[Rfam]
RNA: L31-Gammaproteobacteria ribosomal protein leader
RNA sequence: CGUAUGGUACCUGGCAAAAGAUCAGGUGGCGAUACGGCCUUAACAGAGGU
Numbered sequence: 001c002g003u004a005u006g007g008u009a010c011c012u013g014g015c016a017a018a019a020g021a022u023c024a025g026g027u028g029g030c031g032a033u034a035c036g037g038c039c040u041u042a043a044c045a046g047a048g049g050u
Base pairs, nucleotide, nucleotide: 001036002035003034004033005032007030008029011025012024013023014022015020